[Rfam]
RNA sequence: UCGUUCCCUGGAGUUCCCUUGACCACUUCAUUGGGGCUAUUUUAAGACCCUUAACUGAGGAAAUUUGGUCUCACUGAAGUGUUUGGGGGAACUCUGGGAGAUAG
Dot-bracket structure: ....(.(((.((((((((((.(.(((((((.((((((..............................)))))).)))))))..))))))))))).))).)....
Numbered sequence: 001u002c003g004u005u006c007c008c009u010g011g012a013g014u015u016c017c018c019u020u021g022a023c024c025a026c027u028u029c030a031u032u033g034g035g036g037c038u039a040u041u042u043u044a045a046g047a048c049c050c051u052u053a054a055c056u057g058a059g060g061a062a063a064u065u066u067g068g069u070c071u072c073a074c075u076g077a078a079g080u081g082u083u084u085g086g087g088g089g090a091a092c093u094c095u096g097g098g099a100g101a102u103a104g
Stems, first nucleotide, its partner, number of pairs: 005100001007098003011094010022084001024081007032073006
This 104-nucleotide sequence from Hibiscus syriacus belongs to the Rfam family "mir-395 microRNA precursor family". A reference for the family is Jones-Rhoades and Bartel (2004), "Computational Identification of Plant MicroRNAs and Their Targets, Including a Stress-Induced miRNA", Mol Cell. From the family's description: mir-395 was identified in both Arabidopsis thaliana and Oryza sativa computationally and was later experimentally verified. mir-395 is thought to target mRNAs coding for ATP sulphurylases. The mature sequence is excised from the 3' arm of the hairpin. Lineage of the source: Eukaryota > Euphyllophyta > Pentapetalae > malvids > Hibiscus. The family has 25 seed sequences and 2,798 matches in Rfam 15.1. It scores 63 bits against the family's covariance model.